[Rfam]
RNA sequence: UUGCCCACUUUGAUGGUUUGUUAUCCUAGUGGCCAAUACAGGGGGAUAUAUUAAAUGCUCUCUAAAACUCAAAGCAAAAUGCACAUUUUUCCUUUGAAUCCUGUCGUGAGCGAUAUAU
Numbered sequence: 001u002u003g004c005c006c007a008c009u010u011u012g013a014u015g016g017u018u019u020g021u022u023a024u025c026c027u028a029g030u031g032g033c034c035a036a037u038a039c040a041g042g043g044g045g046a047u048a049u050a051u052u053a054a055a056u057g058c059u060c061u062c063u064a065a066a067a068c069u070c071a072a073a074g075c076a077a078a079a080u081g082c083a084c085a086u087u088u089u090u091c092c093u094u095u096g097a098a099u100c101c102u103g104u105c106g107u108g109a110g111c112g113a114u115a116u117a118u
Base pairs, nucleotide, nucleotide: 002048003047005045006044008042009041010040013037014035015034017032018029056112058110059109060108062106069097070096071095072094073093074092077089078088079087080085